RNA sequence: GCGCCCGUCAUUGGGGAGUAGCUUCUCUUCCUUCGCGAAAGAGGCUGUCGUCAACAUACUUGGCUCUUCCCGGGCCAUGGCGCCAGCGGCCCUUGGGCUUGGCAAGACCUUUGACCACAUCGCCUUCGGAUUGGCCGGCGGCGCCUUGUGGUCAUUCGUCCUGUCGCCGGCCAAGGAGUU
Numbered sequence: 001g002c003g004c005c006c007g008u009c010a011u012u013g014g015g016g017a018g019u020a021g022c023u024u025c026u027c028u029u030c031c032u033u034c035g036c037g038a039a040a041g042a043g044g045c046u047g048u049c050g051u052c053a054a055c056a057u058a059c060u061u062g063g064c065u066c067u068u069c070c071c072g073g074g075c076c077a078u079g080g081c082g083c084c085a086g087c088g089g090c091c092c093u094u095g096g097g098c099u100u101g102g103c104a105a106g107a108c109c110u111u112u113g114a115c116c117a118c119a120u121c122g123c124c125u126u127c128g129g130a131u132u133g134g135c136c137g138g139c140g141g142c143g144c145c146u147u148g149u150g151g152u153c154a155u156u157c158g159u160c161c162u163g164u165c166g167c168c169g170g171c172c173a174a175g176g177a178g179u180u
Stems, first nucleotide, its partner, number of pairs: 026042003044087004049082005061077005088180003092176003
RNA: Manganese Mn2+ riboswitch aptamer (yybP-ykoY)
Organism: Variovorax sp. PBL-E5